[Rfam]
Annotation: This 194-nucleotide RNA sequence from Protea cynaroides belongs to the Rfam family "small nucleolar RNA snoR127". Rfam 15.1 lists 273 matches to the family in 170 species. NCBI's taxonomy places the organism under Eukaryota, Tracheophyta, Euphyllophyta, Magnoliopsida, Protea. The family's RNA type in Rfam is C/D-box small nucleolar RNA.
RNA sequence: CCGGGAUGAUGUAUUUUAGCCAAAUCAGACAAUGGUGUGCUCCAGGAGGCAAUUUCUCUGUUGGCCUUAACAAGUGGCUGUGGUAGAGGCACCUUGUGACCUUUGCCAAGCUCUUGACUGAGCGUGGAUGAGAAGCUUCCUGUGAAGUGCACCCCUCUGAUGAUAAAAUUGAGAAUGGUUGCUUGCUGACCGGA
Numbered sequence: 001c002c003g004g005g006a007u008g009a010u011g012u013a014u015u016u017u018a019g020c021c022a023a024a025u026c027a028g029a030c031a032a033u034g035g036u037g038u039g040c041u042c043c044a045g046g047a048g049g050c051a052a053u054u055u056c057u058c059u060g061u062u063g064g065c066c067u068u069a070a071c072a073a074g075u076g077g078c079u080g081u082g083g084u085a086g087a088g089g090c091a092c093c094u095u096g097u098g099a100c101c102u103u104u105g106c107c108a109a110g111c112u113c114u115u116g117a118c119u120g121a122g123c124g125u126g127g128a129u130g131a132g133a134a135g136c137u138u139c140c141u142g143u144g145a146a147g148u149g150c151a152c153c154c155c156u157c158u159g160a161u162g163a164u165a166a167a168a169u170u171g172a173g174a175a176u177g178g179u180u181g182c183u184u185g186c187u188g189a190c191c192g193g194a
Stems, first nucleotide, its partner, number of pairs: 001193004